[Rfam]
RNA sequence: GACCUAAACCUCCGAGAUUUCUCUGGGGCAUGGCUAAAAAUCGCGACGAGCAUAAAGAACCCAUCAUCAGGUUCGCUCGUCGCGUCAUACGGGGAAACUCGUAUGUGAGUCGCAAGGCUC
Number, nucleotide and partner (000 for none) at each position: 001g035002a000003c033004c032005u000006a000007a000008a000009c028010c027011u026012c025013c000014g023015a022016g000017a000018u000019u000020u000021c000022u015023c014024u000025g012026g011027g010028g009029c000030a000031u000032g004033g003034c000035u001036a000037a000038a000039a000040a000041u000042c084043g083044c082045g081046a080047c079048g078049a077050g076051c075052a000053u000054a000055a000056a000057g074058a073059a072060c071061c070062c000063a000064u000065c000066a000067u000068c000069a000070g061071g060072u059073u058074c057075g051076c050077u049078c048079g047080u046081c045082g044083c043084g042085u000086c105087a104088u103089a102090c101091g100092g099093g098094g000095a000096a000097a000098c093099u092100c091101g090102u089103a088104u087105g086106u000107g120108a119109g118110u117111c116112g000113c000114a000115a000116g111117g110118c109119u108120c107

LOOT RNA: a 120-nucleotide RNA.
Pairs were carried over by alignment from the consensus structure, which is taken from published work.